This 92-nucleotide sequence from Duganella sp. CF517 belongs to the Rfam family "Selenocysteine transfer RNA". It scores 73 bits against the family's covariance model.

Nucleotides: 092
Base pairs, nucleotide, nucleotide: 001092002091003090004089005088006087007086008085011026012025013024014023015022016021027045028044029043030042031041032040047066048065049064050063051062069083070082072080
Number, partner (000 for none) and nucleotide at each position: 001092g002091g003090a004089a005088g006087g007086c008085a009000a010000u011026c012025u013024c014023a015022u016021c017000c018000g019000g020000u021016g022015a023014u024013g025012g026011g027045g028044c029043c030042g031041g032040g033000c034000u035000u036000c037000a038000a039000a040032c041031c042030c043029g044028g045027u046000g047066g048065g049064g050063g051062g052000c053000g054000u055000c056000a057000g058000a059000c060000g061000c062051u063050c064049u065048c066047c067000u068000g069083u070082a071000a072080g073000u074000u075000c076000g077000a078000c079000u080072c081000c082070u083069a084000c085008u086007g087006c088005c089004u090003u091002c092001c